[Rfam]
RNA sequence: GAAGCCACACAGGGGAGCGCCUCGAGGCGCUGAGAGUGCGGACAGAGCCGCAGACCCUCAAACCUGAUCCGGCUAGCACCGGCGUAGGGAGUGGGACCUCCCCGGCA
Numbered sequence: 001g002a003a004g005c006c007a008c009a010c011a012g013g014g015g016a017g018c019g020c021c022u023c024g025a026g027g028c029g030c031u032g033a034g035a036g037u038g039c040g041g042a043c044a045g046a047g048c049c050g051c052a053g054a055c056c057c058u059c060a061a062a063c064c065u066g067a068u069c070c071g072g073c074u075a076g077c078a079c080c081g082g083c084g085u086a087g088g089g090a091g092u093g094g095g096a097c098c099u100c101c102c103c104g105g106c107a
Stems, first nucleotide, its partner, number of pairs: 006095001008093003011058004017030005037052005063088004069082004